[Rfam]
RNA sequence: ACCCAUAGCUAGGGGUCCCUGCAGGAAAAAUUAUCCCCUUCUGCAGGGUGAGAAAUACCCUUUGAACCUGAUACGGAUCAUACCGUCGUAGGGAAGCGUUGUUUUCAACGC
Numbered sequence: 001a002c003c004c005a006u007a008g009c010u011a012g013g014g015g016u017c018c019c020u021g022c023a024g025g026a027a028a029a030a031u032u033a034u035c036c037c038c039u040u041c042u043g044c045a046g047g048g049u050g051a052g053a054a055a056u057a058c059c060c061u062u063u064g065a066a067c068c069u070g071a072u073a074c075g076g077a078u079c080a081u082a083c084c085g086u087c088g089u090a091g092g093g094a095a096g097c098g099u100u101g102u103u104u105u106c107a108a109c110g111c
Base pairs, nucleotide, nucleotide: 008097009096010095011061012060013059014058016055017048018047019046020045021044022043023042024041025040026039067092068091069090070089073086074085075084076083

Shown here is a 111-nucleotide sequence from Sulfurirhabdus autotrophica, a member of the family "TPP riboswitch aptamer (THI element)". The match comes from Rfam's covariance-model search (68 bits). The organism belongs to Sulfurirhabdus, within Bacteria. Rfam links the family to the GO term thiamine pyrophosphate binding. Rfam's curators write: Vitamin B(1) in its active form thiamin pyrophosphate (TPP) is an essential coenzyme that is synthesised by coupling of pyrimidine and thiazole moieties in bacteria. The previously detected thiamin-regulatory element, thi box was extended, resulting in a new, highly conserved RNA secondary structure, the THI element, which is widely distributed in eubacteria and also occurs in some archaea. Analysis of operon structures identified a large number of new candidate thiamin-regulated genes, mostly transporters, in various prokaryotic organisms.